The family of this 65-nucleotide RNA sequence from Hibiscus syriacus is "Small nucleolar RNA U49".
The family has 5 seed sequences and 340 matches in Rfam 15.1.
Gene Ontology terms of the family: nucleolus and RNA processing.
[Rfam]
RNA sequence: UCCCAAUGAGGAAGAAUUCCCAUAGAUAGGAAGUGCCGUACGACAUUUUAAAUAGCAGCGGCAAC
Numbered sequence: 001u002c003c004c005a006a007u008g009a010g011g012a013a014g015a016a017u018u019c020c021c022a023u024a025g026a027u028a029g030g031a032a033g034u035g036c037c038g039u040a041c042g043a044c045a046u047u048u049u050a051a052a053u054a055g056c057a058g059c060g061g062c063a064a065c
Stems, first nucleotide, its partner, number of pairs: 014059001030049006